The record is a 200-nucleotide RNA sequence, which matches "IS605-orfB-I RNA" in Rfam. It is annotated as a small RNA. The base pairs follow the family's consensus structure, which is taken from published work.
RNA sequence: UCUGGAUAAACUUGUAUUUACCCAAGAGAGUGGAACAAGUCACUUUACGGAAUUAAAUUAAGUAACACAUUUCAGGAUUGAUAAAUACUUACAUAUAAGUGAAAUUUUAAAAUGCUGGGAUAACCGUAUGUCCUUUAACAUAUUUUAUGUUAUAAAAAUAAUCUUGAAUAACUUUGAUUAAGUUUUCAAGUUACGGUCAA
Numbered sequence: 001u002c003u004g005g006a007u008a009a010a011c012u013u014g015u016a017u018u019u020a021c022c023c024a025a026g027a028g029a030g031u032g033g034a035a036c037a038a039g040u041c042a043c044u045u046u047a048c049g050g051a052a053u054u055a056a057a058u059u060a061a062g063u064a065a066c067a068c069a070u071u072u073c074a075g076g077a078u079u080g081a082u083a084a085a086u087a088c089u090u091a092c093a094u095a096u097a098a099g100u101g102a103a104a105u106u107u108u109a110a111a112a113u114g115c116u117g118g119g120a121u122a123a124c125c126g127u128a129u130g131u132c133c134u135u136u137a138a139c140a141u142a143u144u145u146u147a148u149g150u151u152a153u154a155a156a157a158a159u160a161a162u163c164u165u166g167a168a169u170a171a172c173u174u175u176g177a178u179u180a181a182g183u184u185u186u187c188a189a190g191u192u193a194c195g196g197u198c199a200a
Base pairs, nucleotide, nucleotide: 001051002050003049004048006046008044010040011039012038013037014036015035017034018033019032020031021030022028068114069113070112071111072109074108075107076106077105078104079103087100088099090097117134118133119132120131121130123197124196125195126194127193128192129158136152137151138150139149140148163190164189165188166187167186168185170183